Shown here is a 140-nucleotide RNA from Phytophthora sojae, a member of the family "MIR8788 microRNA precursor family". Rfam 15.1 lists 16 matches to the family in 14 species. The organism belongs to Phytophthora, within Eukaryota.
RNA sequence: GCGAGAGUUCGCGUAGCCUACCAAGCGUACCAAUACCGUAAUUCAGCACACGAGUGCGUGAGGGUGGCGAGCCCCCCCCCCGCGCGCUCGUUUGCUGAGAUGCAGUGUUGGUUCGCUUGGUACGCCCCGUGCACUCUUGC
Numbered sequence: 001g002c003g004a005g006a007g008u009u010c011g012c013g014u015a016g017c018c019u020a021c022c023a024a025g026c027g028u029a030c031c032a033a034u035a036c037c038g039u040a041a042u043u044c045a046g047c048a049c050a051c052g053a054g055u056g057c058g059u060g061a062g063g064g065u066g067g068c069g070a071g072c073c074c075c076c077c078c079c080c081c082g083c084g085c086g087c088u089c090g091u092u093u094g095c096u097g098a099g100a101u102g103c104a105g106u107g108u109u110g111g112u113u114c115g116c117u118u119g120g121u122a123c124g125c126c127c128c129g130u131g132c133a134c135u136c137u138u139g140c
Base pairs, nucleotide, nucleotide: 001140002139003138004137005136006135007134008133010131011130012129013128016125017124019122020121021120022119023118024117025116026115027114029112030111031110032109033108034107035106036105038103039102040101042099043098044097045096046095047094048093050091051090052089053088054087055086056085057084058083059082060079062075063074064073
The sequence is in the family's curated seed alignment. Pairs were carried over by alignment from the consensus structure, which was predicted with RNAalifold.